[Rfam]
RNA: c-di-GMP-I riboswitch aptamer
RNA sequence: CAUCGAGAAAGGCAAAGCUAGAGAAAUCUAGUGACGCAAAGCUAUAGGGGCUUCACUGCCAGCCAGCUUUCGAA
Numbered sequence: 001c002a003u004c005g006a007g008a009a010a011g012g013c014a015a016a017g018c019u020a021g022a023g024a025a026a027u028c029u030a031g032u033g034a035c036g037c038a039a040a041g042c043u044a045u046a047g048g049g050g051c052u053u054c055a056c057u058g059c060c061a062g063c064c065a066g067c068u069u070u071c072g073a074a
Stems, first nucleotide, its partner, number of pairs: 012037002017032006040068004047064002049060003